Rfam assigns this 82-nucleotide sequence from Streptomyces sp. LaPpAH-108 to the family "nrdJ RNA". The family's consensus secondary structure is taken from published work.

[Rfam]
RNA sequence: ACCUGUCGCGGGUGGCGCCGAAGGUGCCCGCGACGCAAGACAGAACACGUGUCCUGGGAACAUCGGGGCACUUCAGGGCGUU
Numbered sequence: 001a002c003c004u005g006u007c008g009c010g011g012g013u014g015g016c017g018c019c020g021a022a023g024g025u026g027c028c029c030g031c032g033a034c035g036c037a038a039g040a041c042a043g044a045a046c047a048c049g050u051g052u053c054c055u056g057g058g059a060a061c062a063u064c065g066g067g068g069c070a071c072u073u074c075a076g077g078g079c080g081u082u
Stems, first nucleotide, its partner, number of pairs: 004035011018024002049071008
Dot-bracket structure: ...(((((((((((...((...))))))))))))).............((((((((.......))))))))...........
Record summary: The source organism's lineage runs through Bacteria, Actinomycetota, Actinomycetes, Kitasatosporales and Streptomyces.